[Rfam]
RNA sequence: CACCCAGUCCGAGGUUCCGGUGAAACCGGAGCUUGGUGCGAAAGGGA
Numbered sequence: 001c002a003c004c005c006a007g008u009c010c011g012a013g014g015u016u017c018c019g020g021u022g023a024a025a026c027c028g029g030a031g032c033u034u035g036g037u038g039c040g041a042a043a044g045g046g047a
Base pairs, nucleotide, nucleotide: 013033014032015031016030017029018028019027020026
Dot-bracket structure: ............((((((((.....))))))))..............